[Rfam]
RNA sequence: GGCUGGUCGGAAGGUAGUGAGUUAUCUCAAUUGAUUGUUCACAGUCACAGAUCAAACUCCUUAUUCUAUUCCCCCCACUUCUCACUGCUGCGCUUGACUAGUCUGAA
Numbered sequence: 001g002g003c004u005g006g007u008c009g010g011a012a013g014g015u016a017g018u019g020a021g022u023u024a025u026c027u028c029a030a031u032u033g034a035u036u037g038u039u040c041a042c043a044g045u046c047a048c049a050g051a052u053c054a055a056a057c058u059c060c061u062u063a064u065u066c067u068a069u070u071c072c073c074c075c076c077a078c079u080u081c082u083c084a085c086u087g088c089u090g091c092g093c094u095u096g097a098c099u100a101g102u103c104u105g106a107a
Stems, first nucleotide, its partner, number of pairs: 001103008010095002014091002016086006043067002
This 107-nucleotide RNA sequence from Rhinopithecus roxellana belongs to the Rfam family "Y RNA". Rfam classes the family as a non-coding RNA gene. About the family: Y RNAs are components of the Ro ribonucleoprotein particle (Ro RNP), in association with Ro60 and La proteins. The Y RNAs and Ro60 and La proteins are well conserved, but the function of the Ro RNP is not known. In humans the RNA component can be one of four small RNAs -- hY1, hY3, hY4 and hY5.